[Rfam]
RNA sequence: GACCGUCCACCGCCGAGUCCGCGCCAGCGCGGAGCCGGGGACCCACCUCUCCUGGGGUGAAUCGGCACACAUCGUGCCGUAGGGCGCCUUCCAGCCCGAACCCGUCAGCUAACCCGGUAGGCGGCCUGGAAGCAAGG
Numbered sequence: 001g002a003c004c005g006u007c008c009a010c011c012g013c014c015g016a017g018u019c020c021g022c023g024c025c026a027g028c029g030c031g032g033a034g035c036c037g038g039g040g041a042c043c044c045a046c047c048u049c050u051c052c053u054g055g056g057g058u059g060a061a062u063c064g065g066c067a068c069a070c071a072u073c074g075u076g077c078c079g080u081a082g083g084g085c086g087c088c089u090u091c092c093a094g095c096c097c098g099a100a101c102c103c104g105u106c107a108g109c110u111a112a113c114c115c116g117g118u119a120g121g122c123g124g125c126c127u128g129g130a131a132g133c134a135a136g137g
Stems, first nucleotide, its partner, number of pairs: 011123004018033006034118006044054002055103003063079004082097004
RNA: c-di-AMP riboswitch aptamer (ydaO/yuaA leader)
Organism: Planotetraspora silvatica